[Rfam]
RNA sequence: UGUAAGCAAUGAGCCAUGCAAGCUGAAAUGUGCUUGCACAGAUUUCAGCUUAUAUGGCGAAUGUCAAUAAUGAACAACGAAGGUCGGAGACCGGGAGUUGUGAAUUAUCAAGGCUCGGGAGUAGCGAAGCUACGGAGAGACUUGGCUUACA
Number, nucleotide and partner (000 for none) at each position: 001u151002g150003u149004a148005a147006g146007c145008a000009a000010u061011g000012a000013g058014c057015c056016a055017u054018g053019c000020a051021a050022g049023c048024u047025g046026a045027a044028a043029u040030g039031u038032g037033c000034u000035u000036g000037c032038a031039c030040a029041g000042a000043u028044u027045u026046c025047a024048g023049c022050u021051u020052a000053u018054a017055u016056g015057g014058c013059g000060a000061a010062u000063g000064u000065c000066a000067a108068u107069a106070a105071u104072g000073a000074a101075c100076a099077a098078c000079g000080a000081a000082g092083g091084u090085c089086g000087g000088a000089g085090a084091c083092c082093g000094g000095g000096a000097g000098u077099u076100g075101u074102g000103a000104a071105u070106u069107a068108u067109c000110a143111a142112g141113g000114c139115u138116c137117g000118g000119g000120a000121g133122u132123a131124g130125c000126g000127a000128a000129g000130c124131u123132a122133c121134g000135g000136a000137g116138a115139g114140a000141c112142u111143u110144g000145g007146c006147u005148u004149a003150c002151a001